[Rfam]
RNA sequence: UUCUUAUCAAGAGUAGGUGGAGGGACUAGCCCGAUGAAACCCGGCAACCGACAAACCUUUGUUAAUCAAAGGAAUGCACGGUGCUAAUUCUUGCGGAAACGCUGUGCAAAGCGAAUCUGGGAGAUAAGAG
Numbered sequence: 001u002u003c004u005u006a007u008c009a010a011g012a013g014u015a016g017g018u019g020g021a022g023g024g025a026c027u028a029g030c031c032c033g034a035u036g037a038a039a040c041c042c043g044g045c046a047a048c049c050g051a052c053a054a055a056c057c058u059u060u061g062u063u064a065a066u067c068a069a070a071g072g073a074a075u076g077c078a079c080g081g082u083g084c085u086a087a088u089u090c091u092u093g094c095g096g097a098a099a100c101g102c103u104g105u106g107c108a109a110a111g112c113g114a115a116u117c118u119g120g121g122a123g124a125u126a127a128g129a130g
Stems, first nucleotide, its partner, number of pairs: 001130008013042001016041003022032003026093001028091002043085004048081002050077001052076002089122001094119004